[Rfam]
RNA sequence: AAAUUACCUCACGCCAGUGGGGUAGAGUAGCUGGAAUGGGGGCCAGCUGCUCACUUUAAAAAAAGCGACC
Numbered sequence: 001a002a003a004u005u006a007c008c009u010c011a012c013g014c015c016a017g018u019g020g021g022g023u024a025g026a027g028u029a030g031c032u033g034g035a036a037u038g039g040g041g042g043c044c045a046g047c048u049g050c051u052c053a054c055u056u057u058a059a060a061a062a063a064a065g066c067g068a069c070c
Stems, first nucleotide, its partner, number of pairs: 005024008025052010

This 70-nucleotide RNA from Prosthecochloris aestuarii belongs to the Rfam family "Chlorobi-1 RNA". Pairs were carried over by alignment from the consensus structure, which is taken from published work. NCBI's taxonomy places the organism under Bacteria, Chlorobiota, Chlorobiia, Chlorobiaceae, Prosthecochloris aestuarii. Rfam's curators put it in the seed alignment.